A member of the RNA family "HNH endonuclease-associated RNA and ORF (HEARO) RNA" from Dactylococcopsis salina, 220 nucleotides long.
It scores 106 bits against the family's covariance model.
The family has 139 seed sequences and 952 matches in Rfam 15.1.
Pairs were carried over by alignment from the consensus structure, which is taken from published work.
It is annotated as a non-coding RNA gene.
Taxonomically the source falls in Dactylococcopsis salina (Bacteria, Nodosilineales, Cymatolegaceae, Dactylococcopsis).
[Rfam]
RNA sequence: GACUAACCCAAUCACUGUACAUUAAUUGACAUUCGUGUUGAUUGUGUUCGGUUAAUCCAGUCUAAGUCUCUUGGCAGACUACGUUAUUUAGGUCAGGACACCUUUAGGUGCAAGCCAGCCUUCUGCUCUGUCGCUGAUAGUUAAACAGGUUCAAGUGAUUCAAGGAUACCAGUGCUAUUAGUGUAAAAAGCCUAGAUAACAUUGACGAGGCACACUUAAC
Numbered sequence: 001g002a003c004u005a006a007c008c009c010a011a012u013c014a015c016u017g018u019a020c021a022u023u024a025a026u027u028g029a030c031a032u033u034c035g036u037g038u039u040g041a042u043u044g045u046g047u048u049c050g051g052u053u054a055a056u057c058c059a060g061u062c063u064a065a066g067u068c069u070c071u072u073g074g075c076a077g078a079c080u081a082c083g084u085u086a087u088u089u090a091g092g093u094c095a096g097g098a099c100a101c102c103u104u105u106a107g108g109u110g111c112a113a114g115c116c117a118g119c120c121u122u123c124u125g126c127u128c129u130g131u132c133g134c135u136g137a138u139a140g141u142u143a144a145a146c147a148g149g150u151u152c153a154a155g156u157g158a159u160u161c162a163a164g165g166a167u168a169c170c171a172g173u174g175c176u177a178u179u180a181g182u183g184u185a186a187a188a189a190g191c192c193u194a195g196a197u198a199a200c201a202u203u204g205a206c207g208a209g210g211c212a213c214a215c216u217u218a219a220c
Base pairs, nucleotide, nucleotide: 001057002056004054005053006052007051008050010033011032012029013028017022034046035045036044037043060206061205062204064202065080066079067078068077069076083200084199085198086197087196088195089194090193091192092191093190098131099130102125106121107120108119109118110216114211115210116209133182134181135180136179137178138177139176140175141174145173146172148170149169150168152165